[Rfam]
RNA: ZMP/ZTP riboswitch aptamer (pfl RNA motif)
Organism: Limnohabitans sp. Jir61
RNA sequence: UAUCUCGCGCGCAACUGGCGAUAGGCGUAUCUGGCUUGCCCGAUACCGCUGACGUGGAUGUAUGACCACUGGGAAGCGCGCAGCCUCUGUUCACAGAGGUGUUUUGCCGUUCGCCUGGGCAGCCAUU
Number, nucleotide and partner (000 for none) at each position: 001u000002a000003u000004c000005u083006c000007g081008c080009g079010c078011g077012c076013a000014a000015c073016u072017g115018g114019c113020g112021a111022u000023a000024g000025g000026c000027g000028u000029a000030u000031c000032u000033g000034g000035c000036u000037u000038g000039c000040c000041c000042g000043a000044u000045a000046c000047c000048g000049c000050u000051g000052a000053c000054g069055u068056g067057g066058a000059u000060g000061u000062a000063u000064g000065a000066c057067c056068a055069c054070u000071g000072g016073g015074a000075a000076g012077c011078g010079c009080g008081c007082a000083g005084c000085c000086u000087c000088u000089g000090u000091u000092c000093a000094c000095a000096g000097a000098g000099g000100u000101g000102u000103u000104u122105u121106g120107c119108c118109g000110u000111u021112c020113g019114c018115c017116u000117g000118g108119g107120c106121a105122g104123c000124c000125a000126u000127u000